RNA sequence: GGGGGUGGAUGGGGUACUGGUGUCCUUCCCGGUCUUCAAAACCGAGUGCGGGCUAUGGUGUAGCCUGGGUGGGUUCGAUUCCCACGCACUCCC
Numbered sequence: 001g002g003g004g005g006u007g008g009a010u011g012g013g014g015u016a017c018u019g020g021u022g023u024c025c026u027u028c029c030c031g032g033u034c035u036u037c038a039a040a041a042c043c044g045a046g047u048g049c050g051g052g053c054u055a056u057g058g059u060g061u062a063g064c065c066u067g068g069g070u071g072g073g074u075u076c077g078a079u080u081c082c083c084a085c086g087c088a089c090u091c092c093c
Stems, first nucleotide, its partner, number of pairs: 001093007012027003016023002029046001030044004049067005070084004
RNA: Selenocysteine transfer RNA